[Rfam]
RNA: Glycine riboswitch aptamer
Organism: Rhodococcus tukisamuensis
RNA sequence: UCGCGUCGCGCGGGAGAGUUCCGGAGGAUUUCGCUCCGGACGCCGAAGGAGCAACACCUCCCCGUCAAUCUCUCAGGCACAAGGGACCGCGCGGGCUAC
Numbered sequence: 001u002c003g004c005g006u007c008g009c010g011c012g013g014g015a016g017a018g019u020u021c022c023g024g025a026g027g028a029u030u031u032c033g034c035u036c037c038g039g040a041c042g043c044c045g046a047a048g049g050a051g052c053a054a055c056a057c058c059u060c061c062c063c064g065u066c067a068a069u070c071u072c073u074c075a076g077g078c079a080c081a082a083g084g085g086a087c088c089g090c091g092c093g094g095g096c097u098a099c
Stems, first nucleotide, its partner, number of pairs: 006094008020040006042078003045074002049072003056065002
Dot-bracket structure: .....((((((((......((((((.........)))))).(((((..(((....((......))....))))).)))........)))))))).....